[Rfam]
RNA sequence: ACCGCCACGGACGGCGGUGGUUCCACGCAGCAGCGACGUUUUAAAGCAGGACUAUUUGCAAAGCUUUAAAACUCGCAGGUUUGGUUUUGACAAGGAAGUCAAAAACUAAACAGGG
Numbered sequence: 001a002c003c004g005c006c007a008c009g010g011a012c013g014g015c016g017g018u019g020g021u022u023c024c025a026c027g028c029a030g031c032a033g034c035g036a037c038g039u040u041u042u043a044a045a046g047c048a049g050g051a052c053u054a055u056u057u058g059c060a061a062a063g064c065u066u067u068a069a070a071a072c073u074c075g076c077a078g079g080u081u082u083g084g085u086u087u088u089g090a091c092a093a094g095g096a097a098g099u100c101a102a103a104a105a106c107u108a109a110a111c112a113g114g115g
Stems, first nucleotide, its partner, number of pairs: 001018006034075003038072010078111001080109002083106001085104007
RNA: TD-2 RNA